The record is a 146-nucleotide RNA from Streptomyces tagetis, which matches "Streptomyces-metH RNA" in Rfam. It is annotated as a small RNA. A search with the family's covariance model found it, with a score of 75 bits. The source organism's lineage runs through Bacteria, Actinomycetes, Kitasatosporales, Streptomycetaceae and Streptomyces.
RNA sequence: CCCGUCCGUCUCGUGGACGCCCCGGCCCGCGCACGGCCGGUCCCGGCUAGGCUGGCGCCGUGCGUUUGGUCCCGGACGUCCCCUGUGGGCGGUGCCGGGGCCCGCGCAAAGCCGACAGCCGUCGCAUUCUAGGGAGCCCCUUCAUG
Dot-bracket structure: ............................................................((((...((((((((...................))))))))..))))..((.(((....))))).....................